[Rfam]
RNA sequence: UGCCCAUCGGGGCUGUGGAUACCUGCUUUAAAUUUUU
Numbered sequence: 001u002g003c004c005c006a007u008c009g010g011g012g013c014u015g016u017g018g019a020u021a022c023c024u025g026c027u028u029u030a031a032a033u034u035u036u037u
Stems, first nucleotide, its partner, number of pairs: 002013004016025003
This 37-nucleotide RNA from Mus musculus belongs to the Rfam family "XIST RNA A repeat". The source organism's lineage runs through Eukaryota, Mammalia, Theria, Eutheria and Mus musculus. Rfam classes the family as a small RNA. Rfam 15.1 lists 900 matches to the family in 145 species. The sequence is in the family's curated seed alignment. Pairs were carried over by alignment from the consensus structure, which was predicted with CMfinder.